[Rfam]
RNA sequence: UUGCCCAAUGAUUAUAGCAAGACGCGUUAUUAUGAGGACUAAUGCUGGAACCUCUUCCUCCUUCUCCUUCUUUGUCCCUUCCUCUUUACCUUACCUCUCACUUCCCUUAAGGGUAUCCAGCGUCCUAUGAGCAAAAAUGAGAUAUGAGGGCAA
Numbered sequence: 001u002u003g004c005c006c007a008a009u010g011a012u013u014a015u016a017g018c019a020a021g022a023c024g025c026g027u028u029a030u031u032a033u034g035a036g037g038a039c040u041a042a043u044g045c046u047g048g049a050a051c052c053u054c055u056u057c058c059u060c061c062u063u064c065u066c067c068u069u070c071u072u073u074g075u076c077c078c079u080u081c082c083u084c085u086u087u088a089c090c091u092u093a094c095c096u097c098u099c100a101c102u103u104c105c106c107u108u109a110a111g112g113g114u115a116u117c118c119a120g121c122g123u124c125c126u127a128u129g130a131g132c133a134a135a136a137a138u139g140a141g142a143u144a145u146g147a148g149g150g151c152a153a
Stems, first nucleotide, its partner, number of pairs: 001153006035053003040049001
Dot-bracket structure: ((((((............................(((..(........).)))..............................................................................................))))))
The record is a 153-nucleotide RNA from Cuculus canorus, which matches "Small nucleolar RNA SNORD97" in Rfam. Rfam 15.1 lists 639 matches to the family in 614 species. The family's consensus secondary structure was predicted with WAR. The source organism's lineage runs through Eukaryota, Craniata, Sarcopterygii, Saurischia and Cuculus.